[Rfam]
RNA sequence: AUUGGGUGCCCUUCAUUCCACCGGAAUCUGUAGAAGCAGACAUCAGAUUUCUGUGAAAUGGAGCUCACCAGGCA
Numbered sequence: 001a002u003u004g005g006g007u008g009c010c011c012u013u014c015a016u017u018c019c020a021c022c023g024g025a026a027u028c029u030g031u032a033g034a035a036g037c038a039g040a041c042a043u044c045a046g047a048u049u050u051c052u053g054u055g056a057a058a059u060g061g062a063g064c065u066c067a068c069c070a071g072g073c074a
Stems, first nucleotide, its partner, number of pairs: 011063006019055003023051004028046003
mir-205 microRNA precursor family: a 74-nucleotide RNA from Salvator merianae. A reference for the family is Lim et al. (2003), "Vertebrate microRNA genes", Science. It scores 66 bits against the family's covariance model. Rfam 15.1 lists 1,154 matches to the family in 646 species.